[Rfam]
Small nucleolar RNA snoR145: a 149-nucleotide RNA from Senna tora. Rfam classes the family as an H/ACA-box small nucleolar RNA. On this family, see Chen and Wu, Nucleic Acids Res 2009: "Mining small RNA sequencing data: a new approach to identify small nucleolar RNAs in Arabidopsis". The source organism's lineage runs through Eukaryota, Viridiplantae, Streptophytina, Gunneridae and Senna. Rfam links the family to the GO terms RNA processing and nucleolus.

RNA sequence: ACGCGAAGGUCCCAGCAGGGGGGCGAUAUACUCUUGAUGAGGCUCCUCUAACGAUAAAUUUCAAACUCUUCGCAUAUCGAUUUGCCGAAUCGUAGAAUGCCCAAGAAAUUAUGAUUCUUGGUGCAUUUGGAAACCUCGGCUAAAUGUCA
Dot-bracket structure: ..(((((((.(((....)))....((....(((.....))).....))..................)))))))..........(((((.......((.((((((((.........)))))).)).))........))))).........
Numbered sequence: 001a002c003g004c005g006a007a008g009g010u011c012c013c014a015g016c017a018g019g020g021g022g023g024c025g026a027u028a029u030a031c032u033c034u035u036g037a038u039g040a041g042g043c044u045c046c047u048c049u050a051a052c053g054a055u056a057a058a059u060u061u062c063a064a065a066c067u068c069u070u071c072g073c074a075u076a077u078c079g080a081u082u083u084g085c086c087g088a089a090u091c092g093u094a095g096a097a098u099g100c101c102c103a104a105g106a107a108a109u110u111a112u113g114a115u116u117c118u119u120g121g122u123g124c125a126u127u128u129g130g131a132a133a134c135c136u137c138g139g140c141u142a143a144a145u146g147u148c149a
Stems, first nucleotide, its partner, number of pairs: 003073007011020003025048002031041003084140005096127002099124002101121006